[Rfam]
RNA sequence: UGUGUGUGGAUGAUGAUGAACAACCAUAUGCAUAGUUCAACGGAUACUACUAAAUAUGACGAUAAGCAAAACACAUCUUUCGCUCCUAUCUGACACACACA
Numbered sequence: 001u002g003u004g005u006g007u008g009g010a011u012g013a014u015g016a017u018g019a020a021c022a023a024c025c026a027u028a029u030g031c032a033u034a035g036u037u038c039a040a041c042g043g044a045u046a047c048u049a050c051u052a053a054a055u056a057u058g059a060c061g062a063u064a065a066g067c068a069a070a071a072c073a074c075a076u077c078u079u080u081c082g083c084u085c086c087u088a089u090c091u092g093a094c095a096c097a098c099a100c101a
Base pairs, nucleotide, nucleotide: 004098005097006096007095008094
Small nucleolar RNA snR60/Z15/Z230/Z193/J17: a 101-nucleotide RNA sequence from Synchytrium microbalum. Rfam classes the family as a C/D-box small nucleolar RNA. A reference for the family is Lowe and Eddy (1999), "A computational screen for methylation guide snoRNAs in yeast", Science. Gene Ontology terms of the family: nucleolus and RNA processing.